[Rfam]
RNA sequence: GCCGAGCUUGGUAGCACAAGCUUGUAACUCUAGCGAGGGCACCAAGGUGGUUGAAUGUUUGUCCGAUUCAUACAGGCAGGAGCAGUCGGAGCUAAUUCGCUGGCACGCCCAUUCCAAGUAGGGAGUUGAACCAUGUGACUUGAACAAAAGCUUGGGUCAUAUGGCUCUUAGAGUGGAGGGCACCGCGUCAGGCUGGCUUCACAGAGCAGCGAAAACCUCCCGCUCCUAUCAGUGGAAGGACAACGAGCCAGUGCUUCCCUGUCCCAACAAUUGCCCGAUGAGUCGAGCCCAUUCGAACAAACACCUUU
Numbered sequence: 001g002c003c004g005a006g007c008u009u010g011g012u013a014g015c016a017c018a019a020g021c022u023u024g025u026a027a028c029u030c031u032a033g034c035g036a037g038g039g040c041a042c043c044a045a046g047g048u049g050g051u052u053g054a055a056u057g058u059u060u061g062u063c064c065g066a067u068u069c070a071u072a073c074a075g076g077c078a079g080g081a082g083c084a085g086u087c088g089g090a091g092c093u094a095a096u097u098c099g100c101u102g103g104c105a106c107g108c109c110c111a112u113u114c115c116a117a118g119u120a121g122g123g124a125g126u127u128g129a130a131c132c133a134u135g136u137g138a139c140u141u142g143a144a145c146a147a148a149a150g151c152u153u154g155g156g157u158c159a160u161a162u163g164g165c166u167c168u169u170a171g172a173g174u175g176g177a178g179g180g181c182a183c184c185g186c187g188u189c190a191g192g193c194u195g196g197c198u199u200c201a202c203a204g205a206g207c208a209g210c211g212a213a214a215a216c217c218u219c220c221c222g223c224u225c226c227u228a229u230c231a232g233u234g235g236a237a238g239g240a241c242a243a244c245g246a247g248c249c250a251g252u253g254c255u256u257c258c259c260u261g262u263c264c265c266a267a268c269a270a271u272u273g274c275c276c277g278a279u280g281a282g283u284c285g286a287g288c289c290c291a292u293u294c295g296a297a298c299a300a301a302c303a304c305c306u307u308u
Base pairs, nucleotide, nucleotide: 001040002039003038004023005022006021007020008019009018010017028037029036030035044307045306046305047304048303049302051300052299053298056295057294059291061288062287064285065284066283068281069280070279071278075275076274077273078272079265080264082262083261084260085259088257090256091255095252100251101250102249103248104247106245107244109239110238112237113236114235115234116233118230121227122226123225124224125223126222128167129166131164132163133162134161135160136159137158138157139156140155141154142153143152145150168173175220176219177218178217179216186211187210188209193204194203195202
This 308-nucleotide sequence from Nelumbo nucifera belongs to the Rfam family "Plant signal recognition particle RNA". Pairs were carried over by alignment from the consensus structure, which is taken from published work. Lineage of the source: Eukaryota > Viridiplantae > Magnoliopsida > Mesangiospermae > Nelumbo.